[Rfam]
This 101-nucleotide RNA from Saccharomyces cerevisiae belongs to the Rfam family "Small nucleolar RNA snR66". Its family is annotated with RNA processing and nucleolus in the Gene Ontology. The sequence is in the family's curated seed alignment. The family's RNA type in Rfam is C/D-box small nucleolar RNA. NCBI's taxonomy places the organism under Eukaryota, Opisthokonta, Ascomycota, Saccharomycetes, Saccharomyces. For this family Rfam cites "A computational screen for methylation guide snoRNAs in yeast" (Lowe and Eddy, Science, 1999).
RNA sequence: AUAAUUCAUCAAAUGAUGAAAUACCAAUGCAACAGAGUCAAGCUCUGAGUUUCAAAAAGAAACAUGGACGAGAUUGCUUUUUUAUUACUGACCAUGAUUAU
Numbered sequence: 001a002u003a004a005u006u007c008a009u010c011a012a013a014u015g016a017u018g019a020a021a022u023a024c025c026a027a028u029g030c031a032a033c034a035g036a037g038u039c040a041a042g043c044u045c046u047g048a049g050u051u052u053c054a055a056a057a058a059g060a061a062a063c064a065u066g067g068a069c070g071a072g073a074u075u076g077c078u079u080u081u082u083u084a085u086u087a088c089u090g091a092c093c094a095u096g097a098u099u100a101u
Stems, first nucleotide, its partner, number of pairs: 001101006